About this RNA
A member of the RNA family "Small nucleolar RNA SNORA23" from Synaphobranchus kaupii, 181 nucleotides long. The family's consensus secondary structure was predicted with RNAalifold. By type it is an H/ACA-box small nucleolar RNA. Rfam's curators write: The members of this family belong to the H/ACA class of snoRNAs which are thought to guide the sites of modification of uridines to pseudouridines. The match comes from Rfam's covariance-model search (113 bits). Rfam links the family to the GO terms nucleolus and RNA processing.
[Rfam]
RNA sequence: GGUGGCCGGCGUGCGCGGUGUCAGUCCGUGUUUAGCGCCGCGGUCCGUCUGUGUCUUACAGGUUGGACAGCGGUGCUCACGCCACACCCACAGCCACAGAGACACUGGAGAUCAUAGUACUGGUCCAGUGAUGUCUUACAGACGGCCUACCACUGACCAGCCUCCGAACUCUCCUACAAGC
Numbered sequence: 001g002g003u004g005g006c007c008g009g010c011g012u013g014c015g016c017g018g019u020g021u022c023a024g025u026c027c028g029u030g031u032u033u034a035g036c037g038c039c040g041c042g043g044u045c046c047g048u049c050u051g052u053g054u055c056u057u058a059c060a061g062g063u064u065g066g067a068c069a070g071c072g073g074u075g076c077u078c079a080c081g082c083c084a085c086a087c088c089c090a091c092a093g094c095c096a097c098a099g100a101g102a103c104a105c106u107g108g109a110g111a112u113c114a115u116a117g118u119a120c121u122g123g124u125c126c127a128g129u130g131a132u133g134u135c136u137u138a139c140a141g142a143c144g145g146c147c148u149a150c151c152a153c154u155g156a157c158c159a160g161c162c163u164c165c166g167a168a169c170u171c172u173c174c175u176a177c178a179a180g181c
Stems, first nucleotide, its partner, number of pairs: 013091001015089001029084001030082002033079001035077001036075006043068005050060003107174005120160006127154004132145001133143003